The record is a 138-nucleotide RNA from Drosophila rhopaloa, which matches "Drosophila small cajal body-specific RNA PsiU2-35.45" in Rfam. The organism belongs to Sophophora, within Eukaryota. It scores 119 bits against the family's covariance model. Rfam classes the family as a small Cajal body RNA.
RNA sequence: AAACGUGCUCGGAUACCGCUGUAGAGAUUAGAUUAUAUCUCUAUGCCCACAAAAUGCACGAAGAUUAACCUCUUAAUGUUCUUCGAUGAGCCUGCCCGUUUAAGUUUUGAAGCAGGAACAGAUACGGAACUUACAAAC
Numbered sequence: 001a002a003a004c005g006u007g008c009u010c011g012g013a014u015a016c017c018g019c020u021g022u023a024g025a026g027a028u029u030a031g032a033u034u035a036u037a038u039c040u041c042u043a044u045g046c047c048c049a050c051a052a053a054a055u056g057c058a059c060g061a062a063g064a065u066u067a068a069c070c071u072c073u074u075a076a077u078g079u080u081c082u083u084c085g086a087u088g089a090g091c092c093u094g095c096c097c098g099u100u101u102a103a104g105u106u107u108u109g110a111a112g113c114a115g116g117a118a119c120a121g122a123u124a125c126g127g128a129a130c131u132u133a134c135a136a137a138c
Stems, first nucleotide, its partner, number of pairs: 004060005018047001020045007030034001076132001078130005087120002091116005097109002